[Rfam]
RNA sequence: GUCGGUCUUCGGUAGUGGCUUUUCGGCCGGUGGCAUACCGCCGGAGGGCUUCGAUCGAUGACCGCC
Numbered sequence: 001g002u003c004g005g006u007c008u009u010c011g012g013u014a015g016u017g018g019c020u021u022u023u024c025g026g027c028c029g030g031u032g033g034c035a036u037a038c039c040g041c042c043g044g045a046g047g048g049c050u051u052c053g054a055u056c057g058a059u060g061a062c063c064g065c066c
Base pairs, nucleotide, nucleotide: 001066003064004063005062006061007060009058010057011056012055013054017050018049019048021046022045023044024043025042026041027040029039030038031037
RNA: Actino-pnp RNA
Organism: Nocardia cyriacigeorgica